[Rfam]
The record is a 71-nucleotide sequence from Drosophila erecta, which matches "mir-6 microRNA precursor family" in Rfam.
RNA sequence: AACCCCAGGGAACCUCUGCUGCUGAUAUAUUAUUGAAAACUCCUAUAUCACAGUGGCUGUUCUUUUUGGUU
Numbered sequence: 001a002a003c004c005c006c007a008g009g010g011a012a013c014c015u016c017u018g019c020u021g022c023u024g025a026u027a028u029a030u031u032a033u034u035g036a037a038a039a040c041u042c043c044u045a046u047a048u049c050a051c052a053g054u055g056g057c058u059g060u061u062c063u064u065u066u067u068g069g070u071u
Stems, first nucleotide, its partner, number of pairs: 004068001007065007016056006023050002026047004
Rfam links the family to the GO terms RISC complex and miRNA-mediated post-transcriptional gene silencing. This family consists of the microRNA (miRNA) precursor mir-6 which appears to be Drosophila specific. Animal miRNAs are transcribed as ~70nt precursors and subsequently processed by the Dicer enzyme to give a ~22nt product. In this case the mature sequence comes from the 3' arm of the precursor. The extents of the hairpin precursors are not generally known and are estimated based on hairpin prediction. A reference for the family is Ambros (2001), "microRNAs: tiny regulators with great potential", Cell. Its Rfam clan is "mir-6 clan". The sequence is in the family's curated seed alignment. Taxonomically the source falls in Sophophora (Eukaryota, Protostomia, Arthropoda, Drosophilinae).